About this RNA:
Mammalian CPEB3 ribozyme: a 76-nucleotide RNA sequence from Alligator sinensis. Taxonomically the source falls in Alligator (Eukaryota, Eumetazoa, Bilateria, Gnathostomata). A search with the family's covariance model found it, with a score of 36 bits. Rfam's curators write: The mammalian CPEB3 ribozyme is a self cleaving RNA located in the second intron of the CPEB3 gene which belongs to a family of genes regulating messenger RNA polyadenylation. This ribozyme is highly conserved and found only in mammals. The family has 14 seed sequences and 5,706 matches in Rfam 15.1.

[Rfam]
RNA sequence: GUUGCAAGUUCAAGGUUACAGCAGAACCGCUCGCCAUGUGGCCCUGUCAGAUUCCAGUGAAUCUGUGAUUUCUCCU
Numbered sequence: 001g002u003u004g005c006a007a008g009u010u011c012a013a014g015g016u017u018a019c020a021g022c023a024g025a026a027c028c029g030c031u032c033g034c035c036a037u038g039u040g041g042c043c044c045u046g047u048c049a050g051a052u053u054c055c056a057g058u059g060a061a062u063c064u065g066u067g068a069u070u071u072c073u074c075c076u
Stems, first nucleotide, its partner, number of pairs: 014043004020076002023073004028038002048065007